[Rfam]
RNA sequence: UGAGUUGGUGGCUAGGGUUCCGCACGCGUCUGCGCGCCGCGCUUCGUGAUGGCUGGUCCGAGAGCUGCCGCCUGUGCGGGAGAAAUCCGCACAGAUCACGGCGGGACAAAAUCCCGGGAGAC
Numbered sequence: 001u002g003a004g005u006u007g008g009u010g011g012c013u014a015g016g017g018u019u020c021c022g023c024a025c026g027c028g029u030c031u032g033c034g035c036g037c038c039g040c041g042c043u044u045c046g047u048g049a050u051g052g053c054u055g056g057u058c059c060g061a062g063a064g065c066u067g068c069c070g071c072c073u074g075u076g077c078g079g080g081a082g083a084a085a086u087c088c089g090c091a092c093a094g095a096u097c098a099c100g101g102c103g104g105g106a107c108a109a110a111a112u113c114c115c116g117g118g119a120g121a122c
Stems, first nucleotide, its partner, number of pairs: 007069006015059002020056002022053001025048004072094007097117001099120001103115003
Guanidine-I riboswitch aptamer: a 122-nucleotide RNA sequence from Bradyrhizobium erythrophlei. It scores 71 bits against the family's covariance model. NCBI's taxonomy places the organism under Bacteria, Alphaproteobacteria, Hyphomicrobiales, Nitrobacteraceae, Bradyrhizobium. This family represents a conserved RNA structure found upstream of the ykkC and yxkD genes in Bacillus subtilis and related genes in other bacteria. The pairing is the family consensus, mapped onto this sequence.